[Rfam]
RNA sequence: UCCGUCGCGAGGCGGAAUCUGAAGGAAGCCGGAGGCAAAAGCACGGCUCGAGGUACACGAAUCCAAUUUGAGGCGGUCAUAACCGGAUGAGUCACCAAGACAUGACGAAAUCCUAAGCUGCCAAAGACUAUGGCCGCAAAAUUGGGCGAACUCGGGCGGAAAGAUGACGUU
Numbered sequence: 001u002c003c004g005u006c007g008c009g010a011g012g013c014g015g016a017a018u019c020u021g022a023a024g025g026a027a028g029c030c031g032g033a034g035g036c037a038a039a040a041g042c043a044c045g046g047c048u049c050g051a052g053g054u055a056c057a058c059g060a061a062u063c064c065a066a067u068u069u070g071a072g073g074c075g076g077u078c079a080u081a082a083c084c085g086g087a088u089g090a091g092u093c094a095c096c097a098a099g100a101c102a103u104g105a106c107g108a109a110a111u112c113c114u115a116a117g118c119u120g121c122c123a124a125a126g127a128c129u130a131u132g133g134c135c136g137c138a139a140a141a142u143u144g145g146g147c148g149a150a151c152u153c154g155g156g157c158g159g160a161a162a163g164a165u166g167a168c169g170u171u
Stems, first nucleotide, its partner, number of pairs: 001016006028171001030169002036163001041157002044154002046151001048149003062146006073137003077133005085113004091106004
RNA: Group II catalytic intron D1-D4-3
Organism: Cohnella endophytica